[Rfam]
RNA sequence: GCCGUCGUGGCGGAAUUGGUAGACGCGCUGGAUUCAAAAUCCAGUUUCUUCGGAAGUGUGGGUUCGAUUCCCACCGACGGUA
Numbered sequence: 001g002c003c004g005u006c007g008u009g010g011c012g013g014a015a016u017u018g019g020u021a022g023a024c025g026c027g028c029u030g031g032a033u034u035c036a037a038a039a040u041c042c043a044g045u046u047u048c049u050u051c052g053g054a055a056g057u058g059u060g061g062g063u064u065c066g067a068u069u070c071c072c073a074c075c076g077a078c079g080g081u082a
Stems, first nucleotide, its partner, number of pairs: 001081007010026003028044005058074005